[Rfam]
Nucleotides: 074
Base pairs, nucleotide, nucleotide: 015042016041017040018039021074022073023072024071025070026069027068028038029037030036046063047062048061049060050059051058052057
Number, partner (000 for none) and nucleotide at each position: 001000u002000g003000u004000c005000a006000c007000a008000a009000g010000c011000u012000g013000a014000a015042g016041g017040c018039c019000g020000u021074a022073g023072c024071a025070g026069a027068a028038g029037c030036a031000c032000u033000c034000u035000g036030u037029g038028u039018g040017g041016c042015c043000u044000g045000u046063c047062g048061g049060a050059u051058u052057c053000c054000a055000g056000u057052g058051a059050a060049u061048c062047u063046g064000a065000g066000a067000a068027u069026u070025c071024u072023g073022c074021u